[Rfam]
RNA sequence: CAAACUUCCAGUUUGAGAAUAUGCGCAAAAGGUGUUGAUUCAUCUAGACAGCCGGACGGUGGCCAUGGAAGUCGGAAACCGCUAAGGAGUGUGUAACAACUCACCGGCCGAAUGAAUCAGCCCUGAAAAUGGAUGGCGCUCAAGCGUGCUACCCAUACCUCGCCGCCAGGGUAGAAACGAUGCCCUGGCGAGUA
Numbered sequence: 001c002a003a004a005c006u007u008c009c010a011g012u013u014u015g016a017g018a019a020u021a022u023g024c025g026c027a028a029a030a031g032g033u034g035u036u037g038a039u040u041c042a043u044c045u046a047g048a049c050a051g052c053c054g055g056a057c058g059g060u061g062g063c064c065a066u067g068g069a070a071g072u073c074g075g076a077a078a079c080c081g082c083u084a085a086g087g088a089g090u091g092u093g094u095a096a097c098a099a100c101u102c103a104c105c106g107g108c109c110g111a112a113u114g115a116a117u118c119a120g121c122c123c124u125g126a127a128a129a130u131g132g133a134u135g136g137c138g139c140u141c142a143a144g145c146g147u148g149c150u151a152c153c154c155a156u157a158c159c160u161c162g163c164c165g166c167c168a169g170g171g172u173a174g175a176a177a178c179g180a181u182g183c184c185c186u187g188g189c190g191a192g193u194a
Base pairs, nucleotide, nucleotide: 001162003160006157011152012151019150024146025145026144030124031123032122034121035120036119037118038117039116040115041114042113043112051108052107053106054105055104057081058080059079063075064074082086087102091100092099164190165189166188167187168186169185170184171183172182
The family of this 194-nucleotide part of an RNA from Cladonia borealis is "Eukaryotic large subunit ribosomal RNA". NCBI's taxonomy places the organism under Eukaryota, saccharomyceta, leotiomyceta, Lecanorineae, Cladonia.